[Rfam]
RNA sequence: UUUGAGGGGACUGUUGUCUGGUUCAAGGCCAUCAAUUAAUUAUAACUUUGAUUCAGGUGUGUGUGUGUAUGUAUAUAUAUAUAUGUGUGUGUGUGUUCUCGGACCAGGCUUCAUUCCCCUUAAU
Numbered sequence: 001u002u003u004g005a006g007g008g009g010a011c012u013g014u015u016g017u018c019u020g021g022u023u024c025a026a027g028g029c030c031a032u033c034a035a036u037u038a039a040u041u042a043u044a045a046c047u048u049u050g051a052u053u054c055a056g057g058u059g060u061g062u063g064u065g066u067g068u069a070u071g072u073a074u075a076u077a078u079a080u081a082u083a084u085g086u087g088u089g090u091g092u093g094u095g096u097u098c099u100c101g102g103a104c105c106a107g108g109c110u111u112c113a114u115u116c117c118c119c120u121u122a123a124u
Stems, first nucleotide, its partner, number of pairs: 002123009012113002016109006024101001026099003
A member of the RNA family "mir-166 microRNA precursor family" from Citrus x clementina, 124 nucleotides long.
Its family is annotated with RISC complex and miRNA-mediated post-transcriptional gene silencing in the Gene Ontology.
The match comes from Rfam's covariance-model search (84 bits).
Rfam describes the family as follows. This family represents the plant microRNA (miRNA) precursor mir-166.
The family has 31 seed sequences and 2,599 matches in Rfam 15.1.
On this family, see Reinhart et al., Genes Dev 2002: "MicroRNAs in plants".